The family of this 74-nucleotide RNA sequence from Rhodopila globiformis is "Makes More Granules Regulator RNA (mmgR)". It is annotated as a small RNA. NCBI's taxonomy places the organism under Bacteria, Pseudomonadati, Acetobacterales, Acetobacteraceae, Rhodopila. Clan: suhB sRNA clan. About the family: SuhB later renamed mmgR (makes more granules regulator) was a putative non-coding RNA found multiple times in the Agrobacterium tumefaciens genome and related alpha-proteobacteria.
[Rfam]
RNA sequence: GCGCACUGCUUUCUUGGACGUUUCCUCCCUAAACUUCGGCGGUGCCACAAGCACCGCCGUUUUUUUGCCCUCAC
Numbered sequence: 001g002c003g004c005a006c007u008g009c010u011u012u013c014u015u016g017g018a019c020g021u022u023u024c025c026u027c028c029c030u031a032a033a034c035u036u037c038g039g040c041g042g043u044g045c046c047a048c049a050a051g052c053a054c055c056g057c058c059g060u061u062u063u064u065u066u067g068c069c070c071u072c073a074c
Stems, first nucleotide, its partner, number of pairs: 008019001010017002037059009